[Rfam]
RNA sequence: UACUAAUGACGGAAAGGAAUGAUGGGUGGACGAUGAUUAACUAAUCUUAUUUUUAAAUGUUGAAAUGAAAUAAAUUUCAAUUUAUAAAAAAUAGGAUUAGUCUGCCCAAUUCCAAACAACGGUUUUGCUAUUUGAUUUGCGUAAUAGCUUAUUUGGGUAUAAAUAUUUUAACGACUAAUCCUGCCAAAUUUAUUUGGGAGGAUUUUUUU
Numbered sequence: 001u002a003c004u005a006a007u008g009a010c011g012g013a014a015a016g017g018a019a020u021g022a023u024g025g026g027u028g029g030a031c032g033a034u035g036a037u038u039a040a041c042u043a044a045u046c047u048u049a050u051u052u053u054u055a056a057a058u059g060u061u062g063a064a065a066u067g068a069a070a071u072a073a074a075u076u077u078c079a080a081u082u083u084a085u086a087a088a089a090a091a092u093a094g095g096a097u098u099a100g101u102c103u104g105c106c107c108a109a110u111u112c113c114a115a116a117c118a119a120c121g122g123u124u125u126u127g128c129u130a131u132u133u134g135a136u137u138u139g140c141g142u143a144a145u146a147g148c149u150u151a152u153u154u155g156g157g158u159a160u161a162a163a164u165a166u167u168u169u170a171a172c173g174a175c176u177a178a179u180c181c182u183g184c185c186a187a188a189u190u191u192a193u194u195u196g197g198g199a200g201g202a203u204u205u206u207u208u209u
Base pairs, nucleotide, nucleotide: 016113017112018111019110023108024107025106026105029102030101031100042099043098044097045096046095047094048093049092050091051090052089053088054087059081060080061079062078063077064076065075066074120155121154122153127148128147129146130145131144132143177204178203179202180201181200182199184197185196186195187194